RNA sequence: GUAACCUUCUGAUUUUUCAGCACACUGCCAAAUCGACCACUUGAGGUCACCACUCAACGCUGGCCACAAGCGGUAUGGCGACCACCUAAGGCUGG
Numbered sequence: 001g002u003a004a005c006c007u008u009c010u011g012a013u014u015u016u017u018c019a020g021c022a023c024a025c026u027g028c029c030a031a032a033u034c035g036a037c038c039a040c041u042u043g044a045g046g047u048c049a050c051c052a053c054u055c056a057a058c059g060c061u062g063g064c065c066a067c068a069a070g071c072g073g074u075a076u077g078g079c080g081a082c083c084a085c086c087u088a089a090g091g092c093u094g095g
Stems, first nucleotide, its partner, number of pairs: 010035005045083004050078003059074004